[Rfam]
RNA sequence: GGGGAGCAUCCAAUAGCAGAGAUGCUACCUGAUACAGGCUUCCUAAAUUAAAUCCUAGUAAUUUCCUGCUUGUAGUUCUUGAGCAAGGUCUACAGGUCUCAAAACUACUGGAUAUAUGA
Numbered sequence: 001g002g003g004g005a006g007c008a009u010c011c012a013a014u015a016g017c018a019g020a021g022a023u024g025c026u027a028c029c030u031g032a033u034a035c036a037g038g039c040u041u042c043c044u045a046a047a048u049u050a051a052a053u054c055c056u057a058g059u060a061a062u063u064u065c066c067u068g069c070u071u072g073u074a075g076u077u078c079u080u081g082a083g084c085a086a087g088g089u090c091u092a093c094a095g096g097u098c099u100c101a102a103a104a105c106u107a108c109u110g111g112a113u114a115u116a117u118g119a
Stems, first nucleotide, its partner, number of pairs: 001030003005026006055111003068097008077088003